RNA sequence: GCCAAUUCUCAGGGCGGGGUGCAAUUCCCCACCGGUGGUAUCCGGCGUAUGCCGGUAAGCCCACGAGCGCCUCUCCACGGGGAGAGGGUCAGCAGAUCUGGUGAGAGACCAGAGCCGACGGUGACAGUCCGGAUGAAAGAGAAUGCGG
Numbered sequence: 001g002c003c004a005a006u007u008c009u010c011a012g013g014g015c016g017g018g019g020u021g022c023a024a025u026u027c028c029c030c031a032c033c034g035g036u037g038g039u040a041u042c043c044g045g046c047g048u049a050u051g052c053c054g055g056u057a058a059g060c061c062c063a064c065g066a067g068c069g070c071c072u073c074u075c076c077a078c079g080g081g082g083a084g085a086g087g088g089u090c091a092g093c094a095g096a097u098c099u100g101g102u103g104a105g106a107g108a109c110c111a112g113a114g115c116c117g118a119c120g121g122u123g124a125c126a127g128u129c130c131g132g133a134u135g136a137a138a139g140a141g142a143a144u145g146c147g148g
Base pairs, nucleotide, nucleotide: 005144006143007142008141009140010139017029018028019027031128032127033117034116035064036063037062038061059115060114067093068092097113098112099111100110101109119131120130121129
RNA: FMN riboswitch aptamer (RFN element)
Organism: Nitratidesulfovibrio vulgaris